ZMP/ZTP riboswitch aptamer (pfl RNA motif): an 84-nucleotide RNA from Anaerobium acetethylicum. The base pairs follow the family's consensus structure, which is taken from published work. Its family is annotated with regulation of purine nucleotide biosynthetic process and one-carbon metabolic process in the Gene Ontology. The organism belongs to Anaerobium, within Bacteria.

[Rfam]
RNA sequence: CAUAACCUGUACGACUGGCGGAUAAAUGGGAUUACCCAUAGGGAGUACAGAAAACAUCAAAUGCCGACCGCCUGGGCGACCACU
Numbered sequence: 001c002a003u004a005a006c007c008u009g010u011a012c013g014a015c016u017g018g019c020g021g022a023u024a025a026a027u028g029g030g031a032u033u034a035c036c037c038a039u040a041g042g043g044a045g046u047a048c049a050g051a052a053a054a055c056a057u058c059a060a061a062u063g064c065c066g067a068c069c070g071c072c073u074g075g076g077c078g079a080c081c082a083c084u
Base pairs, nucleotide, nucleotide: 003054007050008049009048010047011046012045015042016041017072018071019070020069021068026039027038028037029036062078063077064076065075